Background: This 71-nucleotide RNA sequence from Caenorhabditis elegans belongs to the Rfam family "mir-72 microRNA precursor family". Gene Ontology terms of the family: miRNA-mediated post-transcriptional gene silencing and RISC complex. The organism belongs to Caenorhabditis, within Eukaryota. The base pairs follow the family's consensus structure, which was predicted with RNAalifold. Rfam's curators put it in the seed alignment.
[Rfam]
RNA sequence: GCUAGGCAAGAUGUUGGCAUAGCUGAAUGAUCGCUAUAACAACUAUCAGCUUCGCCACAUUCUGCCACGCA
Dot-bracket structure: ....(((...((((.(((...(((((...................)))))...)))))))...))).....